This 148-nucleotide sequence from Yimella sp. RIT 621 belongs to the Rfam family "c-di-AMP riboswitch aptamer (ydaO/yuaA leader)". Taxonomically the source falls in Yimella (Bacteria, Bacillati, Actinomycetota, Dermacoccaceae). The base pairs follow the family's consensus structure. A search with the family's covariance model found it, with a score of 60 bits.
RNA sequence: CAUCCGGCACGGCCCGUCACCCGGGCAUGAGGGCGGGGGAACCACUUACGAUCCGCACCGGAUCUCGGGGUGAAGUCGGCGUCGCCGACGGGGCAACCUGACCGCCCUAACCCGACAGCUCACCCCGCAGGCGUCGUCAGGAAAGGGA
Numbered sequence: 001c002a003u004c005c006g007g008c009a010c011g012g013c014c015c016g017u018c019a020c021c022c023g024g025g026c027a028u029g030a031g032g033g034c035g036g037g038g039g040a041a042c043c044a045c046u047u048a049c050g051a052u053c054c055g056c057a058c059c060g061g062a063u064c065u066c067g068g069g070g071u072g073a074a075g076u077c078g079g080c081g082u083c084g085c086c087g088a089c090g091g092g093g094c095a096a097c098c099u100g101a102c103c104g105c106c107c108u109a110a111c112c113c114g115a116c117a118g119c120u121c122a123c124c125c126c127g128c129a130g131g132c133g134u135c136g137u138c139a140g141g142a143a144a145g146g147g148a
Base pairs, nucleotide, nucleotide: 003030033128034127035126036125037124038123043067068113069112070111076088077087078086079085091107092106093105094104